The family of this 116-nucleotide RNA sequence from Equus caballus is "Small nucleolar RNA SNORD89". From the family's description: snoRNA HBII-289 belongs to the family of C/D snoRNAs. The organism belongs to Equus, within Eukaryota. It scores 95 bits against the family's covariance model. Rfam 15.1 lists 642 matches to the family in 573 species.
RNA sequence: UCUGAGGAAUGGUGACAAUAAAAGGCUAAAUUGUGGUGUCUCCAUCAGUAGUUUGCUCUCUUUGUGGGUGCCCCACGACAAAAUCUCCUGAAGCAAACCACUGGUCUGACCUCAGU
Numbered sequence: 001u002c003u004g005a006g007g008a009a010u011g012g013u014g015a016c017a018a019u020a021a022a023a024g025g026c027u028a029a030a031u032u033g034u035g036g037u038g039u040c041u042c043c044a045u046c047a048g049u050a051g052u053u054u055g056c057u058c059u060c061u062u063u064g065u066g067g068g069u070g071c072c073c074c075a076c077g078a079c080a081a082a083a084u085c086u087c088c089u090g091a092a093g094c095a096a097a098c099c100a101c102u103g104g105u106c107u108g109a110c111c112u113c114a115g116u
Base pairs, nucleotide, nucleotide: 002115003114004113005112006111007110014106015105016104025034026033035102036101037100038099041096043093045091046090047089048088051073054070055069056068057067058066075086077084
It is annotated as a C/D-box small nucleolar RNA.